[Rfam]
RNA sequence: GCCAUACUACGGCGCAAACAGGGUCAAAGUAAACGAUGACCCACAUGCAACUCUGGGUUAAAAUACAACUCAAAAUGAAAAACCUACCCUGACCCGAGCUUAUUACGCGGGUCCGGUUUUUUU
Numbered sequence: 001g002c003c004a005u006a007c008u009a010c011g012g013c014g015c016a017a018a019c020a021g022g023g024u025c026a027a028a029g030u031a032a033a034c035g036a037u038g039a040c041c042c043a044c045a046u047g048c049a050a051c052u053c054u055g056g057g058u059u060a061a062a063a064u065a066c067a068a069c070u071c072a073a074a075a076u077g078a079a080a081a082a083c084c085u086a087c088c089c090u091g092a093c094c095c096g097a098g099c100u101u102a103u104u105a106c107g108c109g110g111g112u113c114c115g116g117u118u119u120u121u122u123u
Stems, first nucleotide, its partner, number of pairs: 001040001003038003010035002014030002042047001057071001088116002091113006098106001
Annotation: The record is a 123-nucleotide RNA from Biostraticola tofi, which matches "Enterobacteria greA leader" in Rfam. Pairs were carried over by alignment from the consensus structure, which is taken from published work. The match comes from Rfam's covariance-model search (93 bits). On this family, see Naville and Gautheret, Genome Biol 2010: "Premature terminator analysis sheds light on a hidden world of bacterial transcriptional attenuation". Rfam classes the family as a cis-regulatory leader.